Rfam assigns this 112-nucleotide RNA from Luteimonas yindakuii to the family "Xanthomonadaceae sRNA asX1". Lineage of the source: Bacteria > Pseudomonadati > Gammaproteobacteria > Lysobacteraceae > Luteimonas.
[Rfam]
RNA sequence: CACCCGGCGAGGCAGCGCCAAGGGGGGCGUGGCUGAGAUGGAACAGGGUCAGCCGUGCGCGGACCGGGGAAGCGAAGGGGCCGGAUGUCGGGGGACAUCCGGCCCCGUUUUU
Numbered sequence: 001c002a003c004c005c006g007g008c009g010a011g012g013c014a015g016c017g018c019c020a021a022g023g024g025g026g027g028c029g030u031g032g033c034u035g036a037g038a039u040g041g042a043a044c045a046g047g048g049u050c051a052g053c054c055g056u057g058c059g060c061g062g063a064c065c066g067g068g069g070a071a072g073c074g075a076a077g078g079g080g081c082c083g084g085a086u087g088u089c090g091g092g093g094g095a096c097a098u099c100c101g102g103c104c105c106c107g108u109u110u111u112u
Base pairs, nucleotide, nucleotide: 003068004067005066006065007064011060012058013057015030016029017028018027019026031054032053033052034051035050036049039046077106078105079104080103081102082101083100084099085098086097087096088095089094